Source information: Manganese Mn2+ riboswitch aptamer (yybP-ykoY): a 138-nucleotide RNA. This RNA was originally discovered in E. coli during a large scale screen and was named SraF. The family was later found to exist upstream of related families of protein genes in many bacteria, including the the yybP and ykoK genes in B. subtilis. The specific functions of these proteins are unknown, but this structured RNA element may be involved in their genetic regulation as a riboswitch. Its family is annotated with manganese ion binding in the Gene Ontology.
RNA sequence: UCGCCGCUCAUUGGGGAGUAGCCGCUCCGCUCGAUGUCCCGCGCCCCCGGCGCGCAUCGUGACGGAGGCGUCCGUCAACAGACUUGGCCGUUCGGCCAUGGCGGACGCAGCCACCGAGGCCUGGCGAGACCGAUGGUU
Number, nucleotide and partner (000 for none) at each position: 001u000002c000003g000004c000005c000006g000007c000008u000009c000010a000011u000012u000013g000014g000015g000016g000017a000018g000019u000020a000021g000022c000023c000024g000025c000026u066027c065028c064029g000030c000031u000032c000033g000034a000035u000036g000037u000038c000039c000040c000041g000042c000043g000044c000045c000046c000047c000048c000049g000050g000051c000052g000053c000054g000055c000056a000057u000058c000059g000060u000061g000062a000063c000064g028065g027066a026067g000068g108069c107070g106071u105072c104073c103074g102075u101076c100077a099078a000079c000080a000081g000082a000083c000084u000085u098086g097087g096088c095089c094090g000091u000092u000093c000094g089095g088096c087097c086098a085099u077100g076101g075102c074103g073104g072105a071106c070107g069108c068109a000110g000111c000112c000113a000114c000115c000116g000117a000118g000119g000120c000121c000122u000123g000124g000125c000126g000127a000128g000129a000130c000131c000132g000133a000134u000135g000136g000137u000138u000